[Rfam]
RNA sequence: GUUGGAAUCGUGUGCUGCACAAUAUUAAAAUAGUAAAGAAACCCCCUGCUCCUUACCUGUUCGGGGGUUUUACUUU
Numbered sequence: 001g002u003u004g005g006a007a008u009c010g011u012g013u014g015c016u017g018c019a020c021a022a023u024a025u026u027a028a029a030a031u032a033g034u035a036a037a038g039a040a041a042c043c044c045c046c047u048g049c050u051c052c053u054u055a056c057c058u059g060u061u062c063g064g065g066g067g068u069u070u071u072a073c074u075u076u
Base pairs, nucleotide, nucleotide: 002028003027004026005025010018011017012016035076036075037074038073039071040070041069043067044066045065046064047063048062
A member of the RNA family "Oppression of Hydrophobic ORF by sRNA", 76 nucleotides long. On this family, see Fozo et al., Microbiol Mol Biol Rev 2008: "Small toxic proteins and the antisense RNAs that repress them". It is annotated as an antitoxin RNA.